[Rfam]
Background: Rfam assigns this 71-nucleotide sequence from Ferrovum sp. PN-J185 to the family "Fluoride riboswitch aptamer (crcB RNA motif)". The family's consensus secondary structure is taken from published work.

Nucleotides: 071
Base pairs, nucleotide, nucleotide: 010025011024012023013022016062017061018060019059020058021057036051037050038049
Number, partner (000 for none) and nucleotide at each position: 001000a002000a003000a004000g005000c006000u007000a008000c009000a010025g011024g012023a013022a014000a015000u016062g017061g018060c019059a020058u021057u022013u023012u024011c025010c026000u027000a028000u029000c030000u031000a032000a033000c034000c035000g036051c037050c038049u039000u040000a041000u042000u043000c044000a045000a046000u047000a048000a049038a050037g051036g052000a053000u054000g055000a056000u057021a058020a059019u060018g061017c062016c063000u064000a065000c066000a067000g068000u069000u070000u071000u

The organism belongs to Ferrovum, within Bacteria.